[Rfam]
RNA sequence: UAUUAAAAAUUUUAUCCAUUCCUGCCGUUAAAAACUGGUCCUUGUACAUUAGCAUGAGGUACACAAGGUACAUCACACGUCACUGUUUGGUUAUUCUAUCAAUCACACCAAUUUUUAAAAGUACAAAUGGAUGAAAAAUUUAACA
Numbered sequence: 001u002a003u004u005a006a007a008a009a010u011u012u013u014a015u016c017c018a019u020u021c022c023u024g025c026c027g028u029u030a031a032a033a034a035c036u037g038g039u040c041c042u043u044g045u046a047c048a049u050u051a052g053c054a055u056g057a058g059g060u061a062c063a064c065a066a067g068g069u070a071c072a073u074c075a076c077a078c079g080u081c082a083c084u085g086u087u088u089g090g091u092u093a094u095u096c097u098a099u100c101a102a103u104c105a106c107a108c109c110a111a112u113u114u115u116u117a118a119a120a121g122u123a124c125a126a127a128u129g130g131a132u133g134a135a136a137a138a139u140u141u142a143a144c145a
Base pairs, nucleotide, nucleotide: 003143004142005141006140007139010136011135012134013133014132015131016130018128019127020126023123024122025121028118029117030116031115032114033113
Annotation:
MIR7502 microRNA precursor family: a 145-nucleotide sequence from Gossypium arboreum. It scores 71 bits against the family's covariance model.